A member of the RNA family "Phenylalanine leader peptide" from Paramixta manurensis, 125 nucleotides long. Rfam 15.1 lists 379 matches to the family in 290 species. The literature on the family includes a 1978 paper in Proc Natl Acad Sci U S A by Zurawski et al., "Nucleotide sequence of the leader region of the phenylalanine operon of Escherichia coli".
RNA sequence: UAUGAAACCACAGUCGUUUUUCUUCGCCUUCUUUUUUACCUUCCCCUGAACGGGAGGCUAUUCGUCGUGUAAGAAAGAAAGCGAAGACGAACAACAAAGCCUCCUGACCAGGAGGCUUUUUUUUG
Numbered sequence: 001u002a003u004g005a006a007a008c009c010a011c012a013g014u015c016g017u018u019u020u021u022c023u024u025c026g027c028c029u030u031c032u033u034u035u036u037u038a039c040c041u042u043c044c045c046c047u048g049a050a051c052g053g054g055a056g057g058c059u060a061u062u063c064g065u066c067g068u069g070u071a072a073g074a075a076a077g078a079a080a081g082c083g084a085a086g087a088c089g090a091a092c093a094a095c096a097a098a099g100c101c102u103c104c105u106g107a108c109c110a111g112g113a114g115g116c117u118u119u120u121u122u123u124u125g
Stems, first nucleotide, its partner, number of pairs: 016092004021087007029079006036072004042055004056066003096119010